The family of this 104-nucleotide sequence from Sphingomonas sp. YR710 is "Manganese Mn2+ riboswitch aptamer (yybP-ykoY)". Pairs were carried over by alignment from the consensus structure.

RNA sequence: CCAUCGUUCGGGGAGUAGCCGGCCGCUUCUGAUCAAGCGGAGAUCGCGUCAACAUACUUGGGGGAGACCCCAUGGUGCGAUUGCGGAUACCAGCGCGUUUUCGC
Numbered sequence: 001c002c003a004u005c006g007u008u009c010g011g012g013g014a015g016u017a018g019c020c021g022g023c024c025g026c027u028u029c030u031g032a033u034c035a036a037g038c039g040g041a042g043a044u045c046g047c048g049u050c051a052a053c054a055u056a057c058u059u060g061g062g063g064g065a066g067a068c069c070c071c072a073u074g075g076u077g078c079g080a081u082u083g084c085g086g087a088u089a090c091c092a093g094c095g096c097g098u099u100u101u102c103g104c
Base pairs, nucleotide, nucleotide: 023040024039025038042082043081044080045079046078047077048076049075050074051073059072060071061070062069063068
This RNA was originally discovered in E. coli during a large scale screen and was named SraF. The family was later found to exist upstream of related families of protein genes in many bacteria, including the the yybP and ykoK genes in B. subtilis.